RNA sequence: AAAACGCAUGCCCGCAAGUCGCUUUGGAUAAAAGUGUCUGCUAAAUGGCAUAUA
Numbered sequence: 001a002a003a004a005c006g007c008a009u010g011c012c013c014g015c016a017a018g019u020c021g022c023u024u025u026g027g028a029u030a031a032a033a034g035u036g037u038c039u040g041c042u043a044a045a046u047g048g049c050a051u052a053u054a
Base pairs, nucleotide, nucleotide: 014041015040016039020036021035022034023033024032025031
Rfam assigns this 54-nucleotide RNA sequence from Salvelinus namaycush to the family "UnaL2 LINE 3' element". The family's RNA type in Rfam is cis-regulatory element. From the family's description: The eel long interspersed element (LINE) UnaL2 and its partner short interspersed element (SINE) share a conserved 3' tail containing a stem-loop that is critical for their retrotransposition. Presumably, the first step of retrotransposition is the recognition of their 3' tails by UnaL2-encoded reverse transcriptase. The solution structure of a 17-nucleotide RNA derived from the 3' tail of UnaL2 was determined by NMR. Pairs were carried over by alignment from the consensus structure, which is taken from published work.